[Rfam]
RNA sequence: GUUCGGUUGGGGUAAACUCCGCGAAAGCGAAGGACGCUAAAGUCAUGGGUCUAAGGCUUUAAUUCAUAAGAUGAAUUAAGCUAAGAUCGCCAGACUACAAGC
Numbered sequence: 001g002u003u004c005g006g007u008u009g010g011g012g013u014a015a016a017c018u019c020c021g022c023g024a025a026a027g028c029g030a031a032g033g034a035c036g037c038u039a040a041a042g043u044c045a046u047g048g049g050u051c052u053a054a055g056g057c058u059u060u061a062a063u064u065c066a067u068a069a070g071a072u073g074a075a076u077u078a079a080g081c082u083a084a085g086a087u088c089g090c091c092a093g094a095c096u097a098c099a100a101g102c
Stems, first nucleotide, its partner, number of pairs: 012037002017032002020029003041096004046092003049087003056081004
Description: Rfam assigns this 102-nucleotide sequence from Desulfosporosinus sp. Sb-LF to the family "c-di-GMP-I riboswitch aptamer". Taxonomically the source falls in Desulfosporosinus (Bacteria, Bacillota, Eubacteriales, Desulfitobacteriaceae).